MIR390 microRNA precursor family: a 132-nucleotide sequence from Carex littledalei.

RNA sequence: UGGGAGGAUCUGUAAAGCUCAGGAGGGAUAGCGCCUUAGACUUUGAUCAUGCAAACAACCCAAAAUAUGAUUGAUUUUGGUAAAUUAUUUGGUCUGAAGCGCUAUCUAUCCUGAGUUUCAUGGCUCCUCCUU
Dot-bracket structure: .........(.....(((((((((.(((((((((................................................................))))))))).))))))))).....).........
Lineage of the source: Eukaryota > Tracheophyta > Petrosaviidae > commelinids > Carex subgen. Euthyceras.